[Rfam]
RNA sequence: GGCCGUGGCCCGGAAGUGGUCGGGGCCGCUGCGGGCGGAAGGGCGCCUGUGCUUCGUCCGCUCGGCGGUGGCCCAGCCAGGCCCGCGGGA
Dot-bracket structure: ..((((((.((.....((((..((((((((((.((((((.((((......))))..)))).)).)))))))))).)))))).))))))..

Rfam assigns this 90-nucleotide RNA from Homo sapiens to the family "mir-572 microRNA precursor family". Lineage of the source: Eukaryota > Chordata > Primates > Hominoidea > Homo. Rfam links the family to the GO terms RISC complex and miRNA-mediated post-transcriptional gene silencing.